[Rfam]
RNA sequence: GGCGGUCUUCGGUAGUGGCUGCCGGGUUCCCCCUUCCGCGGGGGCAGACCGGCAGCUUCGAUCGAUGGCCGUA
Numbered sequence: 001g002g003c004g005g006u007c008u009u010c011g012g013u014a015g016u017g018g019c020u021g022c023c024g025g026g027u028u029c030c031c032c033c034u035u036c037c038g039c040g041g042g043g044g045c046a047g048a049c050c051g052g053c054a055g056c057u058u059c060g061a062u063c064g065a066u067g068g069c070c071g072u073a
Base pairs, nucleotide, nucleotide: 002072003071004070005069006068007067009065010064011063012062013061017057018056019055020054021053022052023051024050025049027047028046